[Rfam]
RNA sequence: CCUCCAUCCUCCCCGCACAGGAGGAUGGAACGAGGUACCCGACGCUCUCUGCCCUGACUGCGUCGAGACCUCCCACACGGCCGAGGGACCGCACACCCCCGGCCGGAGCAAACUCCGGGCUGCGGUGCCGGGCGGGCUGAGGGUCCCGCCGGGCGC
Numbered sequence: 001c002c003u004c005c006a007u008c009c010u011c012c013c014c015g016c017a018c019a020g021g022a023g024g025a026u027g028g029a030a031c032g033a034g035g036u037a038c039c040c041g042a043c044g045c046u047c048u049c050u051g052c053c054c055u056g057a058c059u060g061c062g063u064c065g066a067g068a069c070c071u072c073c074c075a076c077a078c079g080g081c082c083g084a085g086g087g088a089c090c091g092c093a094c095a096c097c098c099c100c101g102g103c104c105g106g107a108g109c110a111a112a113c114u115c116c117g118g119g120c121u122g123c124g125g126u127g128c129c130g131g132g133c134g135g136g137c138u139g140a141g142g143g144u145c146c147c148g149c150c151g152g153g154c155g156c
Stems, first nucleotide, its partner, number of pairs: 003029004008024005032072004040065003044061002046057002078105006085098003112126003116122002130150001132149005
RNA: Streptomyces sRNA scr5239